[Rfam]
The record is a 103-nucleotide RNA sequence from Proteiniclasticum ruminis, which matches "Purine riboswitch aptamer" in Rfam. Lineage of the source: Bacteria > Bacillati > Clostridia > Eubacteriales > Proteiniclasticum. It scores 72 bits against the family's covariance model. The family's consensus secondary structure is taken from published work.
RNA sequence: GAAUUGAAUAUAGAGAAAACUCAUAUAGUGUCCGAUAAUGUGGUUCGACAGUCUCUACAGAAUGACCUUAAAUCAUUCUACUAUGAGUGAACAUGUCUUUUUG
Numbered sequence: 001g002a003a004u005u006g007a008a009u010a011u012a013g014a015g016a017a018a019a020c021u022c023a024u025a026u027a028g029u030g031u032c033c034g035a036u037a038a039u040g041u042g043g044u045u046c047g048a049c050a051g052u053c054u055c056u057a058c059a060g061a062a063u064g065a066c067c068u069u070a071a072a073u074c075a076u077u078c079u080a081c082u083a084u085g086a087g088u089g090a091a092c093a094u095g096u097c098u099u100u101u102u103g
Stems, first nucleotide, its partner, number of pairs: 019088007029050003033047003059079007